[Rfam]
RNA sequence: GGCCUCCCUCUUUGGGGCGAUCAAUUGUGGAGCCCCCCACCCCUGAUUGAUCGCCCUACAGAGGGUGGCC
Numbered sequence: 001g002g003c004c005u006c007c008c009u010c011u012u013u014g015g016g017g018c019g020a021u022c023a024a025u026u027g028u029g030g031a032g033c034c035c036c037c038c039a040c041c042c043c044u045g046a047u048u049g050a051u052c053g054c055c056c057u058a059c060a061g062a063g064g065g066u067g068g069c070c
Stems, first nucleotide, its partner, number of pairs: 001070004006065006013058015029042002
RNA: mir-9242 microRNA precursor family